A member of the RNA family "U11 spliceosomal RNA" from Amborella trichopoda, 128 nucleotides long. The organism belongs to Amborella, within Eukaryota. Pairs were carried over by alignment from the consensus structure, which is taken from published work. The family has 72 seed sequences and 2,595 matches in Rfam 15.1.
RNA sequence: UAAAAGGGUCGGUUGGCUAAAUAUGCCACUCUCGCCUUUUGUCGGUGGGUGCUGUAUGGCUAUCAAGACAUAUGGCCGACGCAAUUUCUGGACUCCAAAAGGGUUGGCUCGCUAGGUCGACCCUCCAA
Number, nucleotide and partner (000 for none) at each position: 001u000002a000003a000004a000005a000006g000007g000008g080009u079010c078011g077012g076013u000014u028015g027016g026017c025018u000019a000020a000021a000022u000023a000024u000025g017026c016027c015028a014029c051030u000031c049032u048033c047034g046035c045036c044037u000038u000039u000040u000041g000042u000043c000044g036045g035046u034047g033048g032049g031050u000051g029052c075053u074054g073055u072056a071057u070058g069059g000060c000061u000062a000063u000064c000065a000066a000067g000068a000069c058070a057071u056072a055073u054074g053075g052076c012077c011078g010079a009080c008081g000082c000083a000084a000085u000086u000087u000088c000089u000090g000091g000092a000093c000094u000095c000096c000097a000098a000099a000100a124101g123102g122103g121104u120105u119106g118107g117108c116109u115110c000111g000112c000113u000114a000115g109116g108117u107118c106119g105120a104121c103122c102123c101124u100125c000126c000127a000128a000